[Rfam]
RNA: eL15-Euryarchaeota ribosomal protein leader
RNA sequence: CCUGUCUACACAGGUCGGAAUGUGACUCCCGCGGGGCGGCCGUGAGAACGGCCACAGCGCCGAUGGGGGUUGAACCACACA
Numbered sequence: 001c002c003u004g005u006c007u008a009c010a011c012a013g014g015u016c017g018g019a020a021u022g023u024g025a026c027u028c029c030c031g032c033g034g035g036g037c038g039g040c041c042g043u044g045a046g047a048a049c050g051g052c053c054a055c056a057g058c059g060c061c062g063a064u065g066g067g068g069g070u071u072g073a074a075c076c077a078c079a080c081a
Base pairs, nucleotide, nucleotide: 001014002013003012004011005010017076018075024071025070026069027068028067029066030065031064